[Rfam]
The record is a 120-nucleotide RNA sequence, which matches "DUF3800-I RNA" in Rfam. Rfam classes the family as a small RNA. The sequence is in the family's curated seed alignment.

RNA sequence: UUUAAUUACAGGUAGUUAUACGCUGUAUACUUGUGUAACUGAAUUAACGUUUAAGCGAAGUGUAUUCUUCGUCAGUCGCAAGGGGGUCGCUUAAUUUGAUUAAGCGACCUUAUUUUAUUG
Numbered sequence: 001u002u003u004a005a006u007u008a009c010a011g012g013u014a015g016u017u018a019u020a021c022g023c024u025g026u027a028u029a030c031u032u033g034u035g036u037a038a039c040u041g042a043a044u045u046a047a048c049g050u051u052u053a054a055g056c057g058a059a060g061u062g063u064a065u066u067c068u069u070c071g072u073c074a075g076u077c078g079c080a081a082g083g084g085g086g087u088c089g090c091u092u093a094a095u096u097u098g099a100u101u102a103a104g105c106g107a108c109c110u111u112a113u114u115u116u117a118u119u120g
Base pairs, nucleotide, nucleotide: 007027008026009025010024011023012021013020014019030082031081032080033079034078035077038076039075040074041073042051043050044049055072056071057070058069059068060067084110085109086108087107088106089105090104091103092102093101094100095099